Description:
The family of this 99-nucleotide RNA sequence from Medicago truncatula is "MIR2587 microRNA precursor family". The literature on the family includes a 2009 paper in Plant Cell by Lelandais-Briere et al., "Genome-wide Medicago truncatula small RNA analysis revealed novel microRNAs and isoforms differentially regulated in roots and nodules". It scores 78 bits against the family's covariance model. The family has 5 seed sequences and 242 matches in Rfam 15.1.
RNA sequence: GUGUCAUAGUCAUUGUUGACCGUUCAUAGGAACCAUGCAAUUGCAAUGCAUUGCAACUUUUGUGGGAUUCAUAUAACGGUCAACAGAGACUCUUGAUAU
Numbered sequence: 001g002u003g004u005c006a007u008a009g010u011c012a013u014u015g016u017u018g019a020c021c022g023u024u025c026a027u028a029g030g031a032a033c034c035a036u037g038c039a040a041u042u043g044c045a046a047u048g049c050a051u052u053g054c055a056a057c058u059u060u061u062g063u064g065g066g067a068u069u070c071a072u073a074u075a076a077c078g079g080u081c082a083a084c085a086g087a088g089a090c091u092c093u094u095g096a097u098a099u
Stems, first nucleotide, its partner, number of pairs: 001099006008091004013086012026074003030070003034066001036064004043057001